[Rfam]
RNA sequence: CCUCCAGAAACAUAUCGUAGUAUGACCUCACACGAGGCCGGAGGCCGAGUAGAGCACUGAUUAAGGGAGCCGGGCGGGAAACUGCUCGUCCUUUUGUCAAACUCCAAAGCGGCUUUCGCUGUAGACUGUGGGCAGUCCGGGCUGGGGGGUAAGCUUCUAGUCCGUAAGGGAGACAACCCAGACCUGGGUUAAGGUCCCUAAUUGUAGGCUAAGUGUAAACACUGAAGGGCGUCCCAAGCCCUAGACAACUGGGAGGUGAGCUUAGAAGCAGCUACCCUUUAAAAAUAGCGUAACAGCUUACCAGUCGAGGUUUGGGGCCCCGAAAAUGGACGGGGCUCAAGCCUACAACCGAGACCCAGGCGUACCGAGAGGUAAUCGCGUAUGGAGGCGUUCCGGGUGGGUAGAAGCAAGGCUGUAAAGUCUUGUGGACCACCUGGAAACGAAAAU
Numbered sequence: 001c002c003u004c005c006a007g008a009a010a011c012a013u014a015u016c017g018u019a020g021u022a023u024g025a026c027c028u029c030a031c032a033c034g035a036g037g038c039c040g041g042a043g044g045c046c047g048a049g050u051a052g053a054g055c056a057c058u059g060a061u062u063a064a065g066g067g068a069g070c071c072g073g074g075c076g077g078g079a080a081a082c083u084g085c086u087c088g089u090c091c092u093u094u095u096g097u098c099a100a101a102c103u104c105c106a107a108a109g110c111g112g113c114u115u116u117c118g119c120u121g122u123a124g125a126c127u128g129u130g131g132g133c134a135g136u137c138c139g140g141g142c143u144g145g146g147g148g149g150u151a152a153g154c155u156u157c158u159a160g161u162c163c164g165u166a167a168g169g170g171a172g173a174c175a176a177c178c179c180a181g182a183c184c185u186g187g188g189u190u191a192a193g194g195u196c197c198c199u200a201a202u203u204g205u206a207g208g209c210u211a212a213g214u215g216u217a218a219a220c221a222c223u224g225a226a227g228g229g230c231g232u233c234c235c236a237a238g239c240c241c242u243a244g245a246c247a248a249c250u251g252g253g254a255g256g257u258g259a260g261c262u263u264a265g266a267a268g269c270a271g272c273u274a275c276c277c278u279u280u281a282a283a284a285a286u287a288g289c290g291u292a293a294c295a296g297c298u299u300a301c302c303a304g305u306c307g308a309g310g311u312u313u314g315g316g317g318c319c320c321c322g323a324a325a326a327u328g329g330a331c332g333g334g335g336c337u338c339a340a341g342c343c344u345a346c347a348a349c350c351g352a353g354a355c356c357c358a359g360g361c362g363u364a365c366c367g368a369g370a371g372g373u374a375a376u377c378g379c380g381u382a383u384g385g386a387g388g389c390g391u392u393c394c395g396g397g398u399g400g401g402u403a404g405a406a407g408c409a410a411g412g413c414u415g416u417a418a419a420g421u422c423u424u425g426u427g428g429a430c431c432a433c434c435u436g437g438a439a440a441c442g443a444a445a446a447u
Stems, first nucleotide, its partner, number of pairs: 001388006011024005026135001027132006036120003040117008052105001053103002059098003063094006072087006139163009168179003183360007193350003202347001204346006227321003231318010248305005254278003259273003279283001284299001288297002361378002363374004389442001391439010407426008
Archaeal large subunit ribosomal RNA: a 447-nucleotide part of an RNA from an uncultured archaeon. The literature on the family includes a 2001 paper in Science by Yusupov et al., "Crystal structure of the ribosome at 5.5 A resolution". Gene Ontology terms of the family: structural constituent of ribosome and ribosome.